Overview
Rfam assigns this 111-nucleotide RNA sequence from Roseococcus sp. SYP-B2431 to the family "TPP riboswitch aptamer (THI element)". Pairs were carried over by alignment from the consensus structure, which is taken from published work. A search with the family's covariance model found it, with a score of 72 bits. The source organism's lineage runs through Bacteria, Pseudomonadota, Acetobacterales, Roseomonadaceae and Roseococcus.
[Rfam]
RNA sequence: GCCACAUCCAAGGGGAGCCCUUUCCGCAGGGCUGAGAUUCCGCGAGCGACGCGGUCACCCUUCGAACCUGAUCCGGGUCAUGCCGGCGAAGGGAUGGGCAACUCGGCGUCG
Numbered sequence: 001g002c003c004a005c006a007u008c009c010a011a012g013g014g015g016a017g018c019c020c021u022u023u024c025c026g027c028a029g030g031g032c033u034g035a036g037a038u039u040c041c042g043c044g045a046g047c048g049a050c051g052c053g054g055u056c057a058c059c060c061u062u063c064g065a066a067c068c069u070g071a072u073c074c075g076g077g078u079c080a081u082g083c084c085g086g087c088g089a090a091g092g093g094a095u096g097g098g099c100a101a102c103u104c105g106g107c108g109u110c111g
Base pairs, nucleotide, nucleotide: 007098008097009096010095011061012060013059014058016055017032018031019030020029021028040054041053042052043051067092068091069090073086074085075084076083